[Rfam]
RNA: MIR1520 microRNA precursor family
RNA sequence: UUCUUAUUGAAUAAUGAUUGUCACAUGUCAUAUUCUGAUUGAAUGUGAACUCCAUGAAAGAUGAAAUGCAUUGUUAUUUUCAUUGAUCAAUCACAACAUGACACGUGACAGUCAUCAUCC
Numbered sequence: 001u002u003c004u005u006a007u008u009g010a011a012u013a014a015u016g017a018u019u020g021u022c023a024c025a026u027g028u029c030a031u032a033u034u035c036u037g038a039u040u041g042a043a044u045g046u047g048a049a050c051u052c053c054a055u056g057a058a059a060g061a062u063g064a065a066a067u068g069c070a071u072u073g074u075u076a077u078u079u080u081c082a083u084u085g086a087u088c089a090a091u092c093a094c095a096a097c098a099u100g101a102c103a104c105g106u107g108a109c110a111g112u113c114a115u116c117a118u119c120c
Stems, first nucleotide, its partner, number of pairs: 020109004026103001029100003033096002036093001038091003